[Rfam]
RNA: SAM riboswitch aptamer (S box leader)
RNA sequence: GGCUUAUAAAGAAAGAUGGAGGGAACUGACCCUGUGAAGUCUUAACAACCUGCGUUAUGUAAGGUGUUACAUUCAGCCUUUUAAAGGGAAAAUAAGCA
Numbered sequence: 001g002g003c004u005u006a007u008a009a010a011g012a013a014a015g016a017u018g019g020a021g022g023g024a025a026c027u028g029a030c031c032c033u034g035u036g037a038a039g040u041c042u043u044a045a046c047a048a049c050c051u052g053c054g055u056u057a058u059g060u061a062a063g064g065u066g067u068u069a070c071a072u073u074c075a076g077c078c079u080u081u082u083a084a085a086g087g088g089a090a091a092a093u094a095a096g097c098a
Base pairs, nucleotide, nucleotide: 002097003096004095005094006093007092013043014042015041016040017039021032022031023030026076027075028074029073044068045067046066047065049064050063051061052060053059054058072090077087078086079085080084